Rfam assigns this 99-nucleotide RNA sequence from Profundicola chukchiensis to the family "TPP riboswitch aptamer (THI element)". The source organism's lineage runs through Bacteria, Pseudomonadati, Bacteroidota, Flavobacteriales and Profundicola. The match comes from Rfam's covariance-model search (79 bits).
[Rfam]
RNA sequence: CGUAAACUUUAGGGGUGUUCUAAAUGUAAUUAGAACUGAGAAAUACCCUUUGAACCUGAUCUGGUUAGUACCAGCGAAGGGAAAAGUGAAAUGCGUUUG
Numbered sequence: 001c002g003u004a005a006a007c008u009u010u011a012g013g014g015g016u017g018u019u020c021u022a023a024a025u026g027u028a029a030u031u032a033g034a035a036c037u038g039a040g041a042a043a044u045a046c047c048c049u050u051u052g053a054a055c056c057u058g059a060u061c062u063g064g065u066u067a068g069u070a071c072c073a074g075c076g077a078a079g080g081g082a083a084a085a086g087u088g089a090a091a092u093g094c095g096u097u098u099g
Stems, first nucleotide, its partner, number of pairs: 006087005011049004016043001017036007055080003061074004